This 253-nucleotide sequence from Brevibacillus centrosporus belongs to the Rfam family "BsrG". For this family Rfam cites "Identification of regulatory RNAs in Bacillus subtilis" (Irnov et al., Nucleic Acids Res, 2010). It is annotated as a small RNA.
RNA sequence: UACACAAUGGAUUGAUUCUCAAGGGCGGUCGGCAUCCCCGAAUGAAAGGGGGUGAUACUAUGACAGUAUUCGAAGCACUAAGUCUAAUGUUGACAUUUGGGACUUUAGUAAUAAUGCUGUCAUCUAGUAAGAAAAAGUAGACCUCCCUUGAGCUUCACAGCCGGGAGGUCUACAGGCAGGUACUAGGAGCCGACUCCCCGAAAGGAACGACCAUUGUAGCUUACGGACCGCGCGGGUGUUGCAGCACCCAGCG
Numbered sequence: 001u002a003c004a005c006a007a008u009g010g011a012u013u014g015a016u017u018c019u020c021a022a023g024g025g026c027g028g029u030c031g032g033c034a035u036c037c038c039c040g041a042a043u044g045a046a047a048g049g050g051g052g053u054g055a056u057a058c059u060a061u062g063a064c065a066g067u068a069u070u071c072g073a074a075g076c077a078c079u080a081a082g083u084c085u086a087a088u089g090u091u092g093a094c095a096u097u098u099g100g101g102a103c104u105u106u107a108g109u110a111a112u113a114a115u116g117c118u119g120u121c122a123u124c125u126a127g128u129a130a131g132a133a134a135a136a137g138u139a140g141a142c143c144u145c146c147c148u149u150g151a152g153c154u155u156c157a158c159a160g161c162c163g164g165g166a167g168g169u170c171u172a173c174a175g176g177c178a179g180g181u182a183c184u185a186g187g188a189g190c191c192g193a194c195u196c197c198c199c200g201a202a203a204g205g206a207a208c209g210a211c212c213a214u215u216g217u218a219g220c221u222u223a224c225g226g227a228c229c230g231c232g233c234g235g236g237u238g239u240u241g242c243a244g245c246a247c248c249c250a251g252c253g
Stems, first nucleotide, its partner, number of pairs: 001223002004217002007214004012193003016189002018152008028142003033054002036051004062121007075090003100112001160177003195206003229253003234249006
Rfam describes the family as follows. bsrE, bsrG and bsrH pair through intermolecular interactions with antisense sRNAs.
The base pairs follow the family's consensus structure, which was predicted with WAR.